[Rfam]
RNA sequence: AAAUUGGGUAGAGGUGCGGUAACCAUUAGUAAACUGUUGGAGGCAAUGAGGCCAAUGAAGCAGUUGAAAGGGGGAAUCGCCGAAGCAGGAAGAUGACUCAAACGUCUGUCUGCUGGUUUUGUAUUGAAUAAAUGCAGAACUGUCAUAUAGUGAAUAACUAUGUGGAGGGCUAUCUCUUGC
Numbered sequence: 001a002a003a004u005u006g007g008g009u010a011g012a013g014g015u016g017c018g019g020u021a022a023c024c025a026u027u028a029g030u031a032a033a034c035u036g037u038u039g040g041a042g043g044c045a046a047u048g049a050g051g052c053c054a055a056u057g058a059a060g061c062a063g064u065u066g067a068a069a070g071g072g073g074g075a076a077u078c079g080c081c082g083a084a085g086c087a088g089g090a091a092g093a094u095g096a097c098u099c100a101a102a103c104g105u106c107u108g109u110c111u112g113c114u115g116g117u118u119u120u121g122u123a124u125u126g127a128a129u130a131a132a133u134g135c136a137g138a139a140c141u142g143u144c145a146u147a148u149a150g151u152g153a154a155u156a157a158c159u160a161u162g163u164g165g166a167g168g169g170c171u172a173u174c175u176c177u178u179g180c
Base pairs, nucleotide, nucleotide: 006175007174008173009172010171011170016080017079018078019077020076023073024072032065033064034063035062036061037060038059084114085113086112087111088110089109091107092106093105094104095103115141116140117139118138119137120136121135122134123133124132125131143165144164145163146162147161148160149159
This 180-nucleotide sequence from Aureibacillus halotolerans belongs to the Rfam family "Lysine riboswitch aptamer". From the family's description: Riboswitches are metabolite binding domains within certain messenger RNAs that serve as precision sensors for their corresponding targets. Allosteric rearrangement of mRNA structure is mediated by ligand binding, and this results in modulation of gene expression. This family includes riboswitches that sense lysine in a number of genes involved in lysine metabolism, including lysC. A search with the family's covariance model found it, with a score of 124 bits.